[Rfam]
Annotation
TPP riboswitch aptamer (THI element): a 97-nucleotide RNA from Gloeocapsa sp. PCC 73106. The family's consensus secondary structure is taken from published work. Rfam describes the family as follows. Vitamin B(1) in its active form thiamin pyrophosphate (TPP) is an essential coenzyme that is synthesised by coupling of pyrimidine and thiazole moieties in bacteria. A search with the family's covariance model found it, with a score of 70 bits.
RNA sequence: AGCUAUAGCUAGGGGUGCUUGGCUCAACCAGGCUGAGAUAGACCCUUAGAACCUGAGACUGGGUAAUACCAGCGGAGGGAAGCUGUAAUUAGAGGAA
Numbered sequence: 001a002g003c004u005a006u007a008g009c010u011a012g013g014g015g016u017g018c019u020u021g022g023c024u025c026a027a028c029c030a031g032g033c034u035g036a037g038a039u040a041g042a043c044c045c046u047u048a049g050a051a052c053c054u055g056a057g058a059c060u061g062g063g064u065a066a067u068a069c070c071a072g073c074g075g076a077g078g079g080a081a082g083c084u085g086u087a088a089u090u091a092g093a094g095g096a097a
Stems, first nucleotide, its partner, number of pairs: 006085005011046004016040001017033005052078003059072004